Notes
The record is a 247-nucleotide part of an RNA from Pseudoxanthobacter soli, which matches "Bacterial large subunit ribosomal RNA" in Rfam. The match comes from Rfam's covariance-model search (2710 bits).
[Rfam]
RNA sequence: GGAAGUUUGAGAGGAUCUGUCCUUAGUACGAGAGGACCGGGAUGGACGUACCUCUGGUGUACCUGUUGUCGCGCCAGCGGCACAGCAGGGUAGCUACGUACGGUCGGGAUAACCGCUGAAGGCAUCUAAGCGGGAAACCCACCUCAAAACCAGACUUCCCUUGAGAGCCGUGGAAGACCACCACGUUGAUAGGCCGGGUGUGGACGUGCAGCAAUGCAUGAGCUUACCGGUACUAAUAGCUCGAUCG
Dot-bracket structure: ((((((((..((((..(((((((...............))))))).(((((...(((....(((((((((((....))))))..)))))....))).)))))...(((....(((((...........)))))....))).))))......))))))))..(..(((((((((.......)))))....(((((((((.(.....(((((....)))))...).).))))).)))...)))).)...